[Rfam]
Nucleotides: 189
Stems, first nucleotide, its partner, number of pairs: 006184006016082005022077004033067001035065005086116005092110006117143002120140008145174011
Number, partner (000 for none) and nucleotide at each position: 001000a002000g003000g004000u005000g006184a007183g008182g009181u010180a011179g012000a013000g014000g015000a016082g017081c018080g019079g020078g021000a022077c023076g024075u025074c026000a027000a028000g029000a030000g031000u032000a033067c034000u035065g036064c037063c038062g039061g040000g041000a042000g043000a044000u045000c046000a047000g048000g049000g050000a051000a052000u053000u054000c055000g056000a057000u058000g059000a060000a061039c062038c063037g064036g065035u066000u067033g068000g069000a070000a071000a072000g073000g074025g075024g076023c077022g078020c079019c080018c081017g082016c083000c084000g085000a086116a087115g088114u089113c090112u091000u092110a093109a094108a095107g096106c097105c098000c099000a100000c101000c102000c103000g104000g105097g106096g107095c108094u109093u110092u111000u112090g113089g114088g115087c116086u117143g118142g119000g120140c121139c122138u123137g124136c125135a126134u127133c128000a129000a130000a131000c132000a133127g134126g135125u136124g137123c138122a139121g140120g141000a142118c143117u144000g145174u146173c147172a148171c149170c150169a151168g152167a153166g154165g155164a156000g157000a158000u159000c160000c161000u162000g163000g164155u165154c166153c167152u168151c169150u170149g171148g172147u173146g174145g175000a176000g177000c178000a179011c180010u181009a182008u183007c184006u185000c186000a187000c188000g189000a